[Rfam]
RNA: Group II catalytic intron D1-D4-4
Organism: Candidatus Scalindua rubra
RNA sequence: CAGCGGGUGAAAGUUCCGUCCUGGGAAUUAUCUGUACACCCAGGUAGUUAUCUCCGACUCAUGGGAGGGUGACCGAACAUGGGAAAGCUCGGAAGUAAAAGUACCCAGUCCCUUGCGAAAGUAGAGGGGGCCAUUACAGUGGGGCGAGCAACUCUGCAGGCCGUAGCAUUA
Numbered sequence: 001c002a003g004c005g006g007g008u009g010a011a012a013g014u015u016c017c018g019u020c021c022u023g024g025g026a027a028u029u030a031u032c033u034g035u036a037c038a039c040c041c042a043g044g045u046a047g048u049u050a051u052c053u054c055c056g057a058c059u060c061a062u063g064g065g066a067g068g069g070u071g072a073c074c075g076a077a078c079a080u081g082g083g084a085a086a087g088c089u090c091g092g093a094a095g096u097a098a099a100a101g102u103a104c105c106c107a108g109u110c111c112c113u114u115g116c117g118a119a120a121g122u123a124g125a126g127g128g129g130g131c132c133a134u135u136a137c138a139g140u141g142g143g144g145c146g147a148g149c150a151a152c153u154c155u156g157c158a159g160g161c162c163g164u165a166g167c168a169u170u171a
Base pairs, nucleotide, nucleotide: 020044021043022042023041024040053093054092055091056090058083059082060081061080062079063078067074068073101145102144104143105142106141148164149163